A member of the RNA family "Small nucleolar SNORD12/SNORD106", 89 nucleotides long.
RNA sequence: GCUGGUGUAAAUGAUGACUUCACUUUUUUCCCCAUCAGAUCGACAAUGCUGACGUCUUAUAUUUUGCCAGUUAGUUCUGAUACAUCGGC
Numbered sequence: 001g002c003u004g005g006u007g008u009a010a011a012u013g014a015u016g017a018c019u020u021c022a023c024u025u026u027u028u029u030c031c032c033c034a035u036c037a038g039a040u041c042g043a044c045a046a047u048g049c050u051g052a053c054g055u056c057u058u059a060u061a062u063u064u065u066g067c068c069a070g071u072u073a074g075u076u077c078u079g080a081u082a083c084a085u086c087g088g089c
Base pairs, nucleotide, nucleotide: 001089002088003087004086005085006084007083008082009081
The family is grouped with related families in Rfam's "SNORD12 clan".
The sequence is in the family's curated seed alignment.